[Rfam]
RNA sequence: AAAAAGGGCUUCUUUCGUGAGUGGCACACAUGGCGCAACUCAACUGCUCUUCAUGUGGAAUCGACAUCAAGAGAUUUUGGAAGCAUAAUUUUUUGGUACCUGGGCAGCUGGUGAUCAUUGGUCAAAAAAAAGAAAAAGAAAAAAAAAACAGCUCUAAGUCCCAGGGUUCCAGAACCUGGCUCCUUC
Numbered sequence: 001a002a003a004a005a006g007g008g009c010u011u012c013u014u015u016c017g018u019g020a021g022u023g024g025c026a027c028a029c030a031u032g033g034c035g036c037a038a039c040u041c042a043a044c045u046g047c048u049c050u051u052c053a054u055g056u057g058g059a060a061u062c063g064a065c066a067u068c069a070a071g072a073g074a075u076u077u078u079g080g081a082a083g084c085a086u087a088a089u090u091u092u093u094u095g096g097u098a099c100c101u102g103g104g105c106a107g108c109u110g111g112u113g114a115u116c117a118u119u120g121g122u123c124a125a126a127a128a129a130a131a132g133a134a135a136a137a138g139a140a141a142a143a144a145a146a147a148a149c150a151g152c153u154c155u156a157a158g159u160c161c162c163a164g165g166g167u168u169c170c171a172g173a174a175c176c177u178g179g180c181u182c183c184u185u186c
Stems, first nucleotide, its partner, number of pairs: 008084005013026001015024003027055002032050002035047003056079007102184003107180005113175001115173002
Shown here is a 186-nucleotide RNA sequence from Otolemur garnettii, a member of the family "U11 spliceosomal RNA". The family's RNA type in Rfam is spliceosomal small nuclear RNA. The family's consensus secondary structure is taken from published work. A search with the family's covariance model found it, with a score of 79 bits.